[Rfam]
RNA sequence: ACAAGGCCGUCUGGAGAGCCGCCCGCCACGCGCCGGGCGCACCGAAGGAGCAAGCCGUCCGCGCACGAGGCGCGUGGCGAAUCUCUCAGGUACCAAGGACAGGGGGAGCGGC
Numbered sequence: 001a002c003a004a005g006g007c008c009g010u011c012u013g014g015a016g017a018g019c020c021g022c023c024c025g026c027c028a029c030g031c032g033c034c035g036g037g038c039g040c041a042c043c044g045a046a047g048g049a050g051c052a053a054g055c056c057g058u059c060c061g062c063g064c065a066c067g068a069g070g071c072g073c074g075u076g077g078c079g080a081a082u083c084u085c086u087c088a089g090g091u092a093c094c095a096a097g098g099a100c101a102g103g104g105g106g107a108g109c110g111g112c
Base pairs, nucleotide, nucleotide: 007106008105010103011102012101013100020039021038022037023036024035025034041091042090043089044087045086048085049084050083054078055077056076057075058074